[Rfam]
RNA sequence: AUCUGGCAAGGGCAAACUUGACGAAAGUCAAGGACGCAAAGCUCCGGGCUACAUGACUUUUGAGUCGUUUGCCAGCGGGGUUGCCAUC
Numbered sequence: 001a002u003c004u005g006g007c008a009a010g011g012g013c014a015a016a017c018u019u020g021a022c023g024a025a026a027g028u029c030a031a032g033g034a035c036g037c038a039a040a041g042c043u044c045c046g047g048g049c050u051a052c053a054u055g056a057c058u059u060u061u062g063a064g065u066c067g068u069u070u071g072c073c074a075g076c077g078g079g080g081u082u083g084c085c086a087u088c
Stems, first nucleotide, its partner, number of pairs: 012037002017032006040082007047073003054067004